Rfam assigns this 53-nucleotide RNA sequence to the family "Mu-gpT-DE RNA".
[Rfam]
RNA sequence: UCCUGACAGCGGCAUGACGCGGCUGACUUAACCCAAGACAGGAGAAACUCAUG
Numbered sequence: 001u002c003c004u005g006a007c008a009g010c011g012g013c014a015u016g017a018c019g020c021g022g023c024u025g026a027c028u029u030a031a032c033c034c035a036a037g038a039c040a041g042g043a044g045a046a047a048c049u050c051a052u053g
Base pairs, nucleotide, nucleotide: 002042003041004040005039007025008024009023010022